[Rfam]
A member of the RNA family "permuted transfer-messenger RNA" from Skermanella aerolata, 293 nucleotides long. Rfam links the family to the GO term RNA catabolic process. It scores 78 bits against the family's covariance model. Rfam describes the family as follows. Bacterial tmRNA, also known as 10Sa RNA or SsrA, is named for its dual tRNA and mRNA-like properties. Its role is to liberate the mRNA from a stalled ribosome. To accomplish this part of the tmRNA is used as a reading frame that ends in a translation stop signal. The broken mRNA is replaced in the ribosome by the tmRNA and translation of the tmRNA leads to addition of a proteolysis tag to the incomplete protein enabling recognition by a protease. Recently a number of permuted tmRNA genes have been found encoded in two parts. tmRNAs have been identified in eubacteria and some chloroplasts but are absent from archaeal and eukaryote nuclear genomes. NCBI's taxonomy places the organism under Bacteria, Pseudomonadati, Rhodospirillales, Azospirillaceae, Skermanella.
RNA sequence: UCGAGACUGCGAUCAUAUAAGACCUGGCGGACGGGGGCUGCAAUGCCCCCCGCCUCCACCAAAAGACCUCGUGAUGAGCGGGGCAUGGUCUUCGGACCAUCAGGCCAAACCUCCUUUGGAGUUCAGGGCUUGUCCUAUGGGGGCGAAUUAGGAUCGACGUGGGUGAAUAAGGGUCGUUUAGAUGCUGGGUGAGGUACGCCCGCUGAUCCCCUUCCGGGGUGAAGCUCGUCCGACAACUUGUGAAUGUCGCAAAUGACAACCACAAUGCUCAGGAUCUCCGCGUAGCUGCCUAA
Numbered sequence: 001u002c003g004a005g006a007c008u009g010c011g012a013u014c015a016u017a018u019a020a021g022a023c024c025u026g027g028c029g030g031a032c033g034g035g036g037g038c039u040g041c042a043a044u045g046c047c048c049c050c051c052g053c054c055u056c057c058a059c060c061a062a063a064a065g066a067c068c069u070c071g072u073g074a075u076g077a078g079c080g081g082g083g084c085a086u087g088g089u090c091u092u093c094g095g096a097c098c099a100u101c102a103g104g105c106c107a108a109a110c111c112u113c114c115u116u117u118g119g120a121g122u123u124c125a126g127g128g129c130u131u132g133u134c135c136u137a138u139g140g141g142g143g144c145g146a147a148u149u150a151g152g153a154u155c156g157a158c159g160u161g162g163g164u165g166a167a168u169a170a171g172g173g174u175c176g177u178u179u180a181g182a183u184g185c186u187g188g189g190u191g192a193g194g195u196a197c198g199c200c201c202g203c204u205g206a207u208c209c210c211c212u213u214c215c216g217g218g219g220u221g222a223a224g225c226u227c228g229u230c231c232g233a234c235a236a237c238u239u240g241u242g243a244a245u246g247u248c249g250c251a252a253a254u255g256a257c258a259a260c261c262a263c264a265a266u267g268c269u270c271a272g273g274a275u276c277u278c279c280g281c282g283u284a285g286c287u288g289c290c291u292a293a
Stems, first nucleotide, its partner, number of pairs: 001182002011175004023163003027160003033050005051145007186202004
Dot-bracket structure: ((........((((........(((.(((...(((((........)))))(((((((.................................................................................)))))))............))))))........)))).....))...((((.........))))...........................................................................................